Annotation:
serC leader: a 52-nucleotide sequence from Parvibaculum sedimenti. The match comes from Rfam's covariance-model search (58 bits). Gene Ontology term of the family: regulation of gene expression. On this family, see Corbino et al., Genome Biol 2005: "Evidence for a second class of S-adenosylmethionine riboswitches and other regulatory RNA motifs in alpha-proteobacteria". The family's RNA type in Rfam is cis-regulatory leader. Rfam describes the family as follows. This family is a putative regulatory RNA structure that is found upstream of the serC-serA operon in some alpha-proteobacteria. The final stem of the structure overlaps the ribosome binding site of the serC reading frame.
[Rfam]
RNA sequence: GCCCGGGCCACCUCCCCCCACCGGGAGGCAUCUAUCUGGAAGGGUAGUCAAA
Number, nucleotide and partner (000 for none) at each position: 001g000002c000003c000004c000005g000006g000007g000008c000009c000010a000011c028012c027013u026014c025015c024016c023017c000018c000019c000020a000021c000022c000023g016024g015025g014026a013027g012028g011029c000030a000031u000032c047033u046034a045035u044036c043037u042038g000039g000040a000041a000042g037043g036044g035045u034046a033047g032048u000049c000050a000051a000052a000